The family of this 77-nucleotide RNA sequence from Cicer arietinum is "Small nucleolar RNA Z105". Pairs were carried over by alignment from the consensus structure, which was predicted with CMfinder. A reference for the family is Chen et al. (2003), "The high diversity of snoRNAs in plants: identification and comparative study of 120 snoRNA genes from Oryza sativa", Nucleic Acids Res.

[Rfam]
RNA sequence: AUGGCAUGGUGAUGAUAAAUGUGAAUGUUUACAUAUGAUGAUUCAUAUGAUUAAGAAAAUCCUCCUACUCAUACUGA
Dot-bracket structure: .....((((.......................(..(............)..)................)))).....
About this RNA: The source organism's lineage runs through Eukaryota, Embryophyta, Tracheophyta, fabids and Cicer.